[Rfam]
Source information:
The family of this 77-nucleotide RNA from Eubucco bourcierii is "Small nucleolar RNA SNORD20". The base pairs follow the family's consensus structure. Rfam 15.1 lists 573 matches to the family in 527 species. Rfam classes the family as a C/D-box small nucleolar RNA. From the family's description: U20 is a C/D box small nucleolar RNA that is encoded in intron 11 of the nucleolin gene in human, mouse and rat.
RNA sequence: UGGAGAUGAUGACUGAUUAUCUGAGCUGCUGAUGAAACCAUUACCCAAGUCAUCUAGAUAGUCAAGUGCUGAUCCAG
Numbered sequence: 001u002g003g004a005g006a007u008g009a010u011g012a013c014u015g016a017u018u019a020u021c022u023g024a025g026c027u028g029c030u031g032a033u034g035a036a037a038c039c040a041u042u043a044c045c046c047a048a049g050u051c052a053u054c055u056a057g058a059u060a061g062u063c064a065a066g067u068g069c070u071g072a073u074c075c076a077g
Stems, first nucleotide, its partner, number of pairs: 001076004